[Rfam]
RNA sequence: ACCUAGCCGAAACACUAUGUUGGAAAGAAGACGCUUGCUACCUAGGCAUAAUGUAAAAUUAGGUAUAAACAUCGCAGUUGUAAACUUGAGGUGGUUUAGUACGUAGGCGUGAUGAUGACUUGUUGAAGUGAAACCACGAAUCGUGCUCGCUAUUACGUUGGCCCUUAAUAGUAUCUAUGAAGAUUUCCCAUCCUCAGCGGUC
Number, nucleotide and partner (000 for none) at each position: 001a000002c000003c000004u000005a000006g000007c000008c000009g000010a000011a000012a000013c000014a000015c000016u000017a000018u000019g000020u000021u000022g000023g000024a000025a000026a000027g000028a000029a000030g000031a000032c000033g000034c000035u000036u000037g000038c000039u065040a064041c063042c062043u061044a060045g000046g000047c000048a000049u000050a000051a000052u000053g000054u000055a000056a000057a000058a000059u000060u044061a043062g042063g041064u040065a039066u000067a000068a000069a000070c000071a201072u200073c199074g198075c197076a000077g000078u000079u000080g000081u000082a000083a000084a000085c000086u000087u196088g195089a194090g193091g192092u190093g189094g188095u000096u000097u000098a000099g146100u145101a144102c143103g142104u000105a000106g000107g000108c138109g137110u136111g135112a000113u133114g000115a000116u125117g124118a123119c000120u000121u000122g000123u118124u117125g116126a000127a000128g000129u000130g000131a000132a000133a113134c000135c111136a110137c109138g108139a000140a000141u000142c103143g102144u101145g100146c099147u000148c000149g172150c171151u170152a169153u168154u000155a000156c000157g000158u000159u000160g000161g000162c000163c000164c000165u000166u000167a000168a153169u152170a151171g150172u149173a000174u000175c000176u000177a000178u000179g000180a000181a000182g000183a000184u000185u000186u000187c000188c094189c093190a092191u000192c091193c090194u089195c088196a087197g075198c074199g073200g072201u071202c000
R2 RNA element: a 202-nucleotide RNA from Drosophila ambigua. From the family's description: This family represents the 3' UTR region of the R2 retrotransposable element. This family is known to interact with the R2-encoded reverse transcriptase in a reaction known as target primed reverse transcription (TPRT). Gene Ontology term of the family: regulation of reverse transcription. The source organism's lineage runs through Eukaryota, Hexapoda, Insecta, Drosophila and Sophophora. Rfam's curators put it in the seed alignment. The family's RNA type in Rfam is cis-regulatory element.